[Rfam]
RNA sequence: GUGUUUUUCAUAGUAUUAGAUUUAAGGUUAACAAAGGUUAGGGGCUCAGCGGAGUCCCAUUUUUUUGUC
Numbered sequence: 001g002u003g004u005u006u007u008u009c010a011u012a013g014u015a016u017u018a019g020a021u022u023u024a025a026g027g028u029u030a031a032c033a034a035a036g037g038u039u040a041g042g043g044g045c046u047c048a049g050c051g052g053a054g055u056c057c058c059a060u061u062u063u064u065u066u067g068u069c
Stems, first nucleotide, its partner, number of pairs: 041058007
Bacteroidetes FopS (family of paralogous sRNAs): a 69-nucleotide sequence from Prevotellaceae bacterium HUN156. It scores 75 bits against the family's covariance model. The base pairs follow the family's consensus structure, which is taken from published work. Rfam 15.1 lists 822 matches to the family in 178 species. From the family's description: The RNA-binding protein RbpB and BTncRNA_FopS sRNA are involved in the post-transcription regulation of polysaccharide utilisation loci (PUL). FopS sRNAs function as post-transcriptional repressors by binding to the vicinity of the start codon of the first mRNA of target PUL polycistrons, typically corresponding to the cognate SusC homolog, impeding translation of the respective glycan transporter.